[Rfam]
RNA sequence: GAGAGUAGGUCCCUCGAAAUUGGCAUCCAGGUGCAGGUUUCAAACUGCUUGUUGGUGCUGCAGACAAAAGCUAUGGUAUUGAGCAUAACAGGAAAAGGUUGAUGAAUUAAUCAAGU
Numbered sequence: 001g002a003g004a005g006u007a008g009g010u011c012c013c014u015c016g017a018a019a020u021u022g023g024c025a026u027c028c029a030g031g032u033g034c035a036g037g038u039u040u041c042a043a044a045c046u047g048c049u050u051g052u053u054g055g056u057g058c059u060g061c062a063g064a065c066a067a068a069a070g071c072u073a074u075g076g077u078a079u080u081g082a083g084c085a086u087a088a089c090a091g092g093a094a095a096a097g098g099u100u101g102a103u104g105a106a107u108u109a110a111u112c113a114a115g116u
Stems, first nucleotide, its partner, number of pairs: 001015003005011001016041006023034004046115001048092005054080002057077003062072002097112006
This 116-nucleotide RNA sequence from Acetivibrio clariflavus belongs to the Rfam family "Group II catalytic intron D1-D4-2". Rfam describes the family as follows. Group II introns are found in rRNA, tRNA and mRNA of organelles in fungi, plants and protists, and also in mRNA in bacteria. It scores 76 bits against the family's covariance model. On this family, see Lehmann and Schmidt, Crit Rev Biochem Mol Biol 2003: "Group II introns: structure and catalytic versatility of large natural ribozymes". Pairs were carried over by alignment from the consensus structure.